[Rfam]
RNA sequence: GGCCGGAUAAGGUAUUUAUGCCGCCAUCCGGCAAUGCCUGAUGGCGACGCUGAGGCGUCUUAUCAGGCC
Numbered sequence: 001g002g003c004c005g006g007a008u009a010a011g012g013u014a015u016u017u018a019u020g021c022c023g024c025c026a027u028c029c030g031g032c033a034a035u036g037c038c039u040g041a042u043g044g045c046g047a048c049g050c051u052g053a054g055g056c057g058u059c060u061u062a063u064c065a066g067g068c069c
Stems, first nucleotide, its partner, number of pairs: 002032007011022004036068008046059005
Dot-bracket structure: .(((((((..((((....))))...)))))))...((((((((..(((((....))))).)))))))).
Overview
Shown here is a 69-nucleotide sequence from Citrobacter koseri, a member of the family "Nucleoid-associated noncoding RNA 4 (CssrE)". From the family's description: In E. coli small RNA transcribed from repeated extragenic palindromic element (REP325) called nucleoid-associated ncRNA 4 (nRNA4) collaborates HU protein in condensing the DNA. The secondary structure but not the sequence of the RNA is important in nucleoid condensation. Also identified in Shigella as CssrE. Its family is annotated with bacterial nucleoid DNA packaging, bacterial nucleoid and protein binding in the Gene Ontology. The organism belongs to Citrobacter koseri, within Bacteria. Rfam 15.1 lists 870 matches to the family in 32 species. On this family, see Qian et al., MBio 2015: "A New Noncoding RNA Arranges Bacterial Chromosome Organization".